[Rfam]
RNA sequence: CGGCAUGUUCUUCAAGGGCCGAGGCUGGACGCAGUAGCCUCGGCGUCUCCAACUGCAUGCCACAACAGCCUGGAGAGACUUUGACAGCGCAGAGCCUGCCGUGCCUGGUGCUGCCACUCGGCUCUCCCACAGUU
Numbered sequence: 001c002g003g004c005a006u007g008u009u010c011u012u013c014a015a016g017g018g019c020c021g022a023g024g025c026u027g028g029a030c031g032c033a034g035u036a037g038c039c040u041c042g043g044c045g046u047c048u049c050c051a052a053c054u055g056c057a058u059g060c061c062a063c064a065a066c067a068g069c070c071u072g073g074a075g076a077g078a079c080u081u082u083g084a085c086a087g088c089g090c091a092g093a094g095c096c097u098g099c100c101g102u103g104c105c106u107g108g109u110g111c112u113g114c115c116a117c118u119c120g121g122c123u124c125u126c127c128c129a130c131a132g133u134u
Stems, first nucleotide, its partner, number of pairs: 012043002017039002019034001021032001023030001072127006087114002090107003
RNA: Small nucleolar RNA SNORA44
Organism: Ornithorhynchus anatinus